[Rfam]
RNA sequence: CCUUUCGGGGAUCGCCCUCCGCCAGCGUUGUACGCCCGCGGGGGCGUUUGCG
Numbered sequence: 001c002c003u004u005u006c007g008g009g010g011a012u013c014g015c016c017c018u019c020c021g022c023c024a025g026c027g028u029u030g031u032a033c034g035c036c037c038g039c040g041g042g043g044g045c046g047u048u049u050g051c052g
Stems, first nucleotide, its partner, number of pairs: 016044007025035004

Shown here is a 52-nucleotide RNA from Jannaschia aquimarina, a member of the family "ffh sRNA". Rfam classes the family as a small RNA. It scores 59 bits against the family's covariance model. Lineage of the source: Bacteria > Pseudomonadati > Rhodobacterales > Roseobacteraceae > Jannaschia. The literature on the family includes a 2009 paper in BMC Genomics by Meyer et al., "Identification of candidate structured RNAs in the marine organism 'Candidatus Pelagibacter ubique'".